[Rfam]
RNA: L31-Firmicutes ribosomal protein leader
RNA sequence: CUAUGAGUUAGACAAUAACUCAUGGCAAAGGAG
Numbered sequence: 001c002u003a004u005g006a007g008u009u010a011g012a013c014a015a016u017a018a019c020u021c022a023u024g025g026c027a028a029a030g031g032a033g
Base pairs, nucleotide, nucleotide: 001025002024003023004022005021008018009017010016
Dot-bracket structure: (((((..(((.....)))..)))))........